RNA sequence: AGGCAGCCUACUUGCCACGAUUGUUCAAUGGCAUGAAAGGUGUUUAACUACUCAUAAAUUGAAUGCUUUUGCUCUUCAGACUUGCUGAGAUUUUCACUGAAGCCGGUCUAGUAAGCUCAAGUACAUU
Numbered sequence: 001a002g003g004c005a006g007c008c009u010a011c012u013u014g015c016c017a018c019g020a021u022u023g024u025u026c027a028a029u030g031g032c033a034u035g036a037a038a039g040g041u042g043u044u045u046a047a048c049u050a051c052u053c054a055u056a057a058a059u060u061g062a063a064u065g066c067u068u069u070u071g072c073u074c075u076u077c078a079g080a081c082u083u084g085c086u087g088a089g090a091u092u093u094u095c096a097c098u099g100a101a102g103c104c105g106g107u108c109u110a111g112u113a114a115g116c117u118c119a120a121g122u123a124c125a126u127u
Base pairs, nucleotide, nucleotide: 002044003043004042005041007040008039009037011035013033014032015031016030017029066121067120068119071116072115073114078109079108080107081106082105084103085102086101089095090094
Background: Small nucleolar RNA snoR77: a 127-nucleotide RNA from Cajanus cajan. The family's RNA type in Rfam is H/ACA-box small nucleolar RNA. The family's consensus secondary structure was predicted with WAR. A search with the family's covariance model found it, with a score of 110 bits.